[Rfam]
RNA sequence: GCCGGGUUGGGUGGCGCCAACUUGUAACGGGCAUGCUUCUGUCCGGGUAGUAAGGUGUGAGGGUUGUGUCAUGCGAUGUUGUGUCACUAUCCCCAGGAUGUGGAUGGCGCGUCCAUCUCAAACCAGGAGUCGACAUUGGGGCAUUACCGUAAGGUAGUGCACCGAGGUCACUAAGGAAGGGUGUACCGCCCCAGGCUGGCCAACAGAGCAGGGAAAAGCCCUCGCUCUUGGUAGUGGGAGGAUCUCGUGCCAGAAUCCUGAUGUGGGACUACUUCGCUGUAAGCCGCAAUUCGAUCACCUUGCGU
Numbered sequence: 001g002c003c004g005g006g007u008u009g010g011g012u013g014g015c016g017c018c019a020a021c022u023u024g025u026a027a028c029g030g031g032c033a034u035g036c037u038u039c040u041g042u043c044c045g046g047g048u049a050g051u052a053a054g055g056u057g058u059g060a061g062g063g064u065u066g067u068g069u070c071a072u073g074c075g076a077u078g079u080u081g082u083g084u085c086a087c088u089a090u091c092c093c094c095a096g097g098a099u100g101u102g103g104a105u106g107g108c109g110c111g112u113c114c115a116u117c118u119c120a121a122a123c124c125a126g127g128a129g130u131c132g133a134c135a136u137u138g139g140g141g142c143a144u145u146a147c148c149g150u151a152a153g154g155u156a157g158u159g160c161a162c163c164g165a166g167g168u169c170a171c172u173a174a175g176g177a178a179g180g181g182u183g184u185a186c187c188g189c190c191c192c193a194g195g196c197u198g199g200c201c202a203a204c205a206g207a208g209c210a211g212g213g214a215a216a217a218g219c220c221c222u223c224g225c226u227c228u229u230g231g232u233a234g235u236g237g238g239a240g241g242a243u244c245u246c247g248u249g250c251c252a253g254a255a256u257c258c259u260g261a262u263g264u265g266g267g268a269c270u271a272c273u274u275c276g277c278u279g280u281a282a283g284c285c286g287c288a289a290u291u292c293g294a295u296c297a298c299c300u301u302g303c304g305u
Base pairs, nucleotide, nucleotide: 001048002047003046004023005022006021007020008019009018010017028045029044030043031042032041050303051302052301053300054299055298056297057296061292062291063290064289065288066287067286068285070283072281073280074279075278081277082276083275086273088271089270090268091267092266093265095259096258097257098256099255101253105252106251107250108249109248110247111246113241114240116239117238118237119236120235122232123231124230125229126228127227128226129225130224132169133168134167136165137164138163139162141160142159143158144157145156146155147154148153171175178222179221180220181219182218189213190212191211196206197205198204
The family of this 305-nucleotide RNA sequence from Phytophthora fragariaefolia is "Metazoan signal recognition particle RNA". The literature on the family includes a 2002 paper in Curr Opin Struct Biol by Wild et al., "Towards the structure of the mammalian signal recognition particle". The signal recognition particle (SRP) is a universally conserved ribonucleoprotein. It is involved in the co-translational targeting of proteins to membranes. The eukaryotic SRP consists of a 300-nucleotide 7S RNA and six proteins: SRPs 72, 68, 54, 19, 14, and 9. Archaeal SRP consists of a 7S RNA and homologues of the eukaryotic SRP19 and SRP54 proteins. Eukaryotic and archaeal 7S RNAs have very similar secondary structures, as represented by this family. Eight helical elements fold into the Alu and S domains, separated by a long linker region. The Alu domain is thought to mediate the peptide chain elongation retardation function of the SRP. The universally conserved helix which interacts with the SRP54 M domain mediates signal sequence recognition. In eukaryotes and archaea, the SRP19-helix 6 complex is thought to be involved in SRP assembly and stabilises helix 8 for SRP54 binding. The Signal Recognition Particle Database (SRPDB) provides compilations of SRP components, with phylogenetic data and structural illustrations. Many sequences below the threshold for this family are clearly closely related, but are most likely to be SRP RNA derived pseudogenes. The human genome in particular is known to contain a large amount of SRP RNA related sequence, including Alu repeats. While the threshold of this family is set high so as to minimise the number of hits to such regions, it is likely that some remain. By type it is a non-coding RNA gene. A search with the family's covariance model found it, with a score of 154 bits. Lineage of the source: Eukaryota > Stramenopiles > Peronosporales > Peronosporaceae > Phytophthora.